RNA sequence: GGUGAUUUGUACUACUGACGGUUAAGUGGAGUUUACCACGUGAAGUGCAAUUCUUGAAAAUGUCGACCGUCUGGGCAACAAUU
Numbered sequence: 001g002g003u004g005a006u007u008u009g010u011a012c013u014a015c016u017g018a019c020g021g022u023u024a025a026g027u028g029g030a031g032u033u034u035a036c037c038a039c040g041u042g043a044a045g046u047g048c049a050a051u052u053c054u055u056g057a058a059a060a061u062g063u064c065g066a067c068c069g070u071c072u073g074g075g076c077a078a079c080a081a082u083u
Stems, first nucleotide, its partner, number of pairs: 004053002007050006015042001017071005026039004061077004